[Rfam]
RNA sequence: AAAUGAGAUAGAGGUCGCAUUUUUCAACAGUAGAUCCGGGGAUGCAGCAGGUGCAGAGGAACAGGAAGGAAAGGGAAAGAUGCCGAAAGAAAAGGUGCCUGACCACUUUAUUCUUGGGCAUGCAGUUAAGAGCUGUAUGACUGUCAUCAGUAAAUGAUGGGGAGCUAUCGGAGAU
Numbered sequence: 001a002a003a004u005g006a007g008a009u010a011g012a013g014g015u016c017g018c019a020u021u022u023u024u025c026a027a028c029a030g031u032a033g034a035u036c037c038g039g040g041g042a043u044g045c046a047g048c049a050g051g052u053g054c055a056g057a058g059g060a061a062c063a064g065g066a067a068g069g070a071a072a073g074g075g076a077a078a079g080a081u082g083c084c085g086a087a088a089g090a091a092a093a094g095g096u097g098c099c100u101g102a103c104c105a106c107u108u109u110a111u112u113c114u115u116g117g118g119c120a121u122g123c124a125g126u127u128a129a130g131a132g133c134u135g136u137a138u139g140a141c142u143g144u145c146a147u148c149a150g151u152a153a154a155u156g157a158u159g160g161g162g163a164g165c166u167a168u169c170g171g172a173g174a175u
Stems, first nucleotide, its partner, number of pairs: 007169005017083009035066003039062001087115005092109006116142002119139008144160006
The family of this 175-nucleotide sequence from Firmicutes bacterium CAG:194 is "Lysine riboswitch aptamer". Lineage of the source: Bacteria > Bacillati > Bacillota. The base pairs follow the family's consensus structure, which is taken from published work.